[Rfam]
This 70-nucleotide RNA sequence from Pluvianellus socialis belongs to the Rfam family "Small nucleolar RNA SNORD66".
Rfam describes the family as follows. snoRNA HBII-142 is part of the C/D family of snoRNAs. It is the human orthologue of the mouse MBII-142 snoRNA and is predicted to guide 2'O-ribose methylation of small 18S rRNA at residue C1272.
The literature on the family includes a 2001 paper in EMBO J by Huttenhofer et al., "RNomics: an experimental approach that identifies 201 candidates for novel, small, non-messenger RNAs in mouse".
NCBI's taxonomy places the organism under Eukaryota, Bilateria, Sauropsida, Coelurosauria, Pluvianellus.
Rfam classes the family as a C/D-box small nucleolar RNA.

RNA sequence: GUCCAUUGAUGAUCGGUGGUGGGUGCCAGCUGAGACUGUGUCCCUUUGACUGUAAUCAGGGUCUGAGGAC
Numbered sequence: 001g002u003c004c005a006u007u008g009a010u011g012a013u014c015g016g017u018g019g020u021g022g023g024u025g026c027c028a029g030c031u032g033a034g035a036c037u038g039u040g041u042c043c044c045u046u047u048g049a050c051u052g053u054a055a056u057c058a059g060g061g062u063c064u065g066a067g068g069a070c
Base pairs, nucleotide, nucleotide: 001070002069003068004067